[Rfam]
RNA sequence: GGUUUAUUCAGAGCGGUGGAGGGUGCAGGCCCUACGAGACCGCGGCAACCGCCCAACGAUACCUAUACGGAAUCCGAGGAGAAUGGUGCCAAUGCCUGCCUGAGAAGUUUACUUCGAGGGAGCGAUGAUGC
Numbered sequence: 001g002g003u004u005u006a007u008u009c010a011g012a013g014c015g016g017u018g019g020a021g022g023g024u025g026c027a028g029g030c031c032c033u034a035c036g037a038g039a040c041c042g043c044g045g046c047a048a049c050c051g052c053c054c055a056a057c058g059a060u061a062c063c064u065a066u067a068c069g070g071a072a073u074c075c076g077a078g079g080a081g082a083a084u085g086g087u088g089c090c091a092a093u094g095c096c097u098g099c100c101u102g103a104g105a106a107g108u109u110u111a112c113u114u115c116g117a118g119g120g121a122g123c124g125a126u127g128a129u130g131c
Stems, first nucleotide, its partner, number of pairs: 001131001004128005013043005021032003026098004044090004049086002052081001054079001094123001099120003104115003
Dot-bracket structure: (..(((((....(((((...(((..[[[[)))......)))))((((.((.(.(........................).)...))))))...(]]]](((..(((......)))..)))..))))))..)
Shown here is a 131-nucleotide sequence from Mariprofundus sp. EBB-1, a member of the family "SAM riboswitch aptamer (S box leader)". The SAM riboswitch is found upstream of a number of genes which code for proteins involved in methionine or cysteine biosynthesis in Gram-positive bacteria. Lineage of the source: Bacteria > Pseudomonadati > Pseudomonadota > Candidatius Mariprofundia > Mariprofundus.